[Rfam]
Nucleotides: 086
Stems, first nucleotide, its partner, number of pairs: 013070006020063008033054004
Number, partner (000 for none) and nucleotide at each position: 001000g002000c003000g004000g005000c006000u007000c008000u009000g010000g011000c012000c013070c014069u015068g016067g017066c018065a019000c020063a021062c022061a023060g024059u025058g026057u027056a028000u029000u030000g031000g032000u033054c034053u035052g036051u037000g038000u039000g040000u041000g042000u043000g044000u045000g046000u047000g048000u049000c050000u051036a052035c053034a054033g055000c056027u057026a058025c059024a060023u061022u062021g063020u064000c065018u066017g067016c068015u069014g070013g071000g072000u073000u074000u075000c076000a077000g078000a079000g080000c081000c082000g083000c084000u085000u086000c
The record is an 86-nucleotide RNA sequence from Danio rerio, which matches "mir-221 microRNA precursor family" in Rfam. The base pairs follow the family's consensus structure, which was predicted with RNAalifold. Rfam links the family to the GO terms RISC complex and miRNA-mediated post-transcriptional gene silencing. For this family Rfam cites "MicroRNA profile of Marek's disease virus-transformed T-cell line MSB-1: predominance of virus-encoded microRNAs" (Yao et al., J Virol, 2008). A search with the family's covariance model found it, with a score of 55 bits.